[Rfam]
RNA sequence: AGCUGUUCCCCUCUGGAGGUUUUGACCUUCAAACUUGUCAGGCCGCGGAGCAAUCCAGCGGCCUUCUUUUUUGGAGCCG
Numbered sequence: 001a002g003c004u005g006u007u008c009c010c011c012u013c014u015g016g017a018g019g020u021u022u023u024g025a026c027c028u029u030c031a032a033a034c035u036u037g038u039c040a041g042g043c044c045g046c047g048g049a050g051c052a053a054u055c056c057a058g059c060g061g062c063c064u065u066c067u068u069u070u071u072u073g074g075a076g077c078c079g
Stems, first nucleotide, its partner, number of pairs: 008018001010016002040064007048056001